This 115-nucleotide RNA sequence from Pseudomonas guineae belongs to the Rfam family "Pseudomon-groES RNA". The family's RNA type in Rfam is cis-regulatory element.
RNA sequence: GUAGCGGUCACCGCAAGGUUUUUUGUCGCUUAGACAAAUCAGACUUCAGCGUUGCGCCUGGCGCAGGGCUACCGGCCUAGCCGGAUUUUGCUAACCCGUCGGUGAAUUCGCCGGC
Dot-bracket structure: .........(((....)))..(((((.......))))).........(((.(((((.....))))).))).((((.....)))).............((((((......))))))
Pairs were carried over by alignment from the consensus structure, which is taken from published work.